Shown here is a 69-nucleotide sequence from Actinobacteria bacterium OK074, a member of the family "ASpks TB sRNA". The family has 77 seed sequences and 9,052 matches in Rfam 15.1. The family's RNA type in Rfam is antisense RNA. The source organism's lineage runs through Bacteria, Bacillati, Actinomycetota and Actinomycetes.
RNA sequence: CUUCACCGAGCCGAGCAGCAACGGGAGUUCACGGUCCUGGCCGUACGUGGCGAGCAGCGCCUGGGCCUC
Numbered sequence: 001c002u003u004c005a006c007c008g009a010g011c012c013g014a015g016c017a018g019c020a021a022c023g024g025g026a027g028u029u030c031a032c033g034g035u036c037c038u039g040g041c042c043g044u045a046c047g048u049g050g051c052g053a054g055c056a057g058c059g060c061c062u063g064g065g066c067c068u069c
Base pairs, nucleotide, nucleotide: 016024028065029064030063032059033058037054038053041050042049043048